[Rfam]
RNA sequence: AAAAAAUGCUAGGGGAGCCUUUGGGCUGAGAAGUUUAUAACUGACCCUUUGAACCUGAUCUGGAUAGUACCAGCGUAGGGAAGCUGUUUUUUAGCAUU
Numbered sequence: 001a002a003a004a005a006a007u008g009c010u011a012g013g014g015g016a017g018c019c020u021u022u023g024g025g026c027u028g029a030g031a032a033g034u035u036u037a038u039a040a041c042u043g044a045c046c047c048u049u050u051g052a053a054c055c056u057g058a059u060c061u062g063g064a065u066a067g068u069a070c071c072a073g074c075g076u077a078g079g080g081a082a083g084c085u086g087u088u089u090u091u092u093a094g095c096a097u098u
Base pairs, nucleotide, nucleotide: 008084009083010082011048012047013046014045016042017026018025019024033041034040035039054079055078056077057076060073061072062071063070
The family of this 98-nucleotide RNA sequence from Cetobacterium sp. 2A is "TPP riboswitch aptamer (THI element)". It scores 79 bits against the family's covariance model. The family's consensus secondary structure is taken from published work.